[Rfam]
RNA sequence: UCGGGAAAACAGCCUCCCGAGUUCCUUGCGGAAUAGACGGUUUUCGUCCAAGUGCUGG
Numbered sequence: 001u002c003g004g005g006a007a008a009a010c011a012g013c014c015u016c017c018c019g020a021g022u023u024c025c026u027u028g029c030g031g032a033a034u035a036g037a038c039g040g041u042u043u044u045c046g047u048c049c050a051a052g053u054g055c056u057g058g
Stems, first nucleotide, its partner, number of pairs: 001020006010057004036048005
This 58-nucleotide sequence from Hydrogenophaga aromaticivorans belongs to the Rfam family "chrB-b RNA".
The family's RNA type in Rfam is cis-regulatory element.
The organism belongs to Hydrogenophaga, within Bacteria.